[Rfam]
Rfam assigns this 182-nucleotide RNA from Paenibacillus sp. N3.4 to the family "FMN riboswitch aptamer (RFN element)". Its family is annotated with FMN binding in the Gene Ontology.

RNA sequence: CAAAACCUUCGGGGCGUGGUGAAAUUCCACACCGGCGGUAAUUCAAUGGACUGUUCGUAUCUCAGACAUUGAUAAGUCCGCGACCCGUUUUGAAGCUAGCGGUACCUGACACACAGCUUCGCUACGGCUGAUCCGGUGCAAUUCCGGAACCGACAGUAUAGUCUGGAUGGGAGAAGGAAAAC
Numbered sequence: 001c002a003a004a005a006c007c008u009u010c011g012g013g014g015c016g017u018g019g020u021g022a023a024a025u026u027c028c029a030c031a032c033c034g035g036c037g038g039u040a041a042u043u044c045a046a047u048g049g050a051c052u053g054u055u056c057g058u059a060u061c062u063c064a065g066a067c068a069u070u071g072a073u074a075a076g077u078c079c080g081c082g083a084c085c086c087g088u089u090u091u092g093a094a095g096c097u098a099g100c101g102g103u104a105c106c107u108g109a110c111a112c113a114c115a116g117c118u119u120c121g122c123u124a125c126g127g128c129u130g131a132u133c134c135g136g137u138g139c140a141a142u143u144c145c146g147g148a149a150c151c152g153a154c155a156g157u158a159u160a161g162u163c164u165g166g167a168u169g170g171g172a173g174a175a176g177g178a179a180a181a182c
Stems, first nucleotide, its partner, number of pairs: 006177005017029003031162002033152002035081004076150002085127004132148005154165003